Description
Streptococcus sRNA SpF59 (ldcC RNA): a 60-nucleotide RNA sequence. On this family, see Mann et al., PLoS Pathog 2012: "Control of virulence by small RNAs in Streptococcus pneumoniae". It is one of the family's seed sequences. By type it is a small RNA.

RNA sequence: CGACCGCUGCCGUGCGCGCACGGGAGCCAAGGCCAGACGGACAGCCGGGUCGAAUGCCGA
Numbered sequence: 001c002g003a004c005c006g007c008u009g010c011c012g013u014g015c016g017c018g019c020a021c022g023g024g025a026g027c028c029a030a031g032g033c034c035a036g037a038c039g040g041a042c043a044g045c046c047g048g049g050u051c052g053a054a055u056g057c058c059g060a
Stems, first nucleotide, its partner, number of pairs: 001052005006027003010023005